This 98-nucleotide RNA from Jeotgalibacillus alimentarius belongs to the Rfam family "SAM riboswitch aptamer (S box leader)".
Rfam links the family to the GO term regulation of gene expression.
The match comes from Rfam's covariance-model search (83 bits).
The source organism's lineage runs through Bacteria, Bacilli, Caryophanales, Caryophanaceae and Jeotgalibacillus.
RNA sequence: AACUUAUCAAGAGAGGUGGAGGGACUGGCCCUUUGAAACCUCAGCAACCGGCAGUGCACGGUGCUAAUUCCAGCAGGCAACCAGCCUGAAGAUAAGAA
Numbered sequence: 001a002a003c004u005u006a007u008c009a010a011g012a013g014a015g016g017u018g019g020a021g022g023g024a025c026u027g028g029c030c031c032u033u034u035g036a037a038a039c040c041u042c043a044g045c046a047a048c049c050g051g052c053a054g055u056g057c058a059c060g061g062u063g064c065u066a067a068u069u070c071c072a073g074c075a076g077g078c079a080a081c082c083a084g085c086c087u088g089a090a091g092a093u094a095a096g097a098a
Stems, first nucleotide, its partner, number of pairs: 003096006013042005021031003025073004043065004048061002050057001052056001069090001074088005